Microsporidia small subunit ribosomal RNA: a 482-nucleotide part of an RNA from Bryonosema plumatellae. The source organism's lineage runs through Eukaryota, Opisthokonta, Fungi, Pseudonosematidae and Bryonosema. Pairs were carried over by alignment from the consensus structure, which is taken from published work. Its Rfam clan is "SSU clan". The family has 46 seed sequences and 1,035 matches in Rfam 15.1.

[Rfam]
RNA sequence: CACCAGGUUGAUUCUGCCUGACGUAUGCGCUUGUCUUGAAGAUUUAGCCAUGCAAGCCAGUGACCGUAAGGAACGGCAGACAGCUCAGUAAUACAGUUAUAAUUUACUCGUAGGAUAUGGAUAACCAUGGAAAACUAUGGCUAAAACAUAGGGAGAAUACCGUCACAGGGAAUUUUGAGGUAUUUGAUACGAUUAAGUUUCUGACCUAUUAGUUAGAUGGUAAGGUAAAGGCUUACCAUGGCUGUGAUGGGUAACGGGGAAUUAACGUUCGAUUCCGGAGAGGGAGCCUGAGAAAUAGCUCCCACGUCUAAGGAUGGCAGCAGGCGCGAAACUUACCCAAUUCCUUGCCGGGAGAGGUAGUGAAGAGACGUGAAAUAUAAUUUAGCGAGGGCAUAUUAAAUGGCAGCCUGUAAACUGGAGGGCAAGCCUGGUGCCAGCAGCCGCGGUAAUUCCAGCUCCAGUAGCGCAUAUAACUAUUGUUG
Numbered sequence: 001c002a003c004c005a006g007g008u009u010g011a012u013u014c015u016g017c018c019u020g021a022c023g024u025a026u027g028c029g030c031u032u033g034u035c036u037u038g039a040a041g042a043u044u045u046a047g048c049c050a051u052g053c054a055a056g057c058c059a060g061u062g063a064c065c066g067u068a069a070g071g072a073a074c075g076g077c078a079g080a081c082a083g084c085u086c087a088g089u090a091a092u093a094c095a096g097u098u099a100u101a102a103u104u105u106a107c108u109c110g111u112a113g114g115a116u117a118u119g120g121a122u123a124a125c126c127a128u129g130g131a132a133a134a135c136u137a138u139g140g141c142u143a144a145a146a147c148a149u150a151g152g153g154a155g156a157a158u159a160c161c162g163u164c165a166c167a168g169g170g171a172a173u174u175u176u177g178a179g180g181u182a183u184u185u186g187a188u189a190c191g192a193u194u195a196a197g198u199u200u201c202u203g204a205c206c207u208a209u210u211a212g213u214u215a216g217a218u219g220g221u222a223a224g225g226u227a228a229a230g231g232c233u234u235a236c237c238a239u240g241g242c243u244g245u246g247a248u249g250g251g252u253a254a255c256g257g258g259g260a261a262u263u264a265a266c267g268u269u270c271g272a273u274u275c276c277g278g279a280g281a282g283g284g285a286g287c288c289u290g291a292g293a294a295a296u297a298g299c300u301c302c303c304a305c306g307u308c309u310a311a312g313g314a315u316g317g318c319a320g321c322a323g324g325c326g327c328g329a330a331a332c333u334u335a336c337c338c339a340a341u342u343c344c345u346u347g348c349c350g351g352g353a354g355a356g357g358u359a360g361u362g363a364a365g366a367g368a369c370g371u372g373a374a375a376u377a378u379a380a381u382u383u384a385g386c387g388a389g390g391g392c393a394u395a396u397u398a399a400a401u402g403g404c405a406g407c408c409u410g411u412a413a414a415c416u417g418g419a420g421g422g423c424a425a426g427c428c429u430g431g432u433g434c435c436a437g438c439a440g441c442c443g444c445g446g447u448a449a450u451u452c453c454a455g456c457u458c459c460a461g462u463a464g465c466g467c468a469u470a471u472a473a474c475u476a477u478u479g480u481u482g
Stems, first nucleotide, its partner, number of pairs: 004020005023471009033369005040361001041327001047325003051322003056077002060074002064071002084280003094203003099198002103196002108192005117149003125140006205251003212242003217239008255277004259270004282303006305316004333359001335358003341354005389409004415461006428455004437444002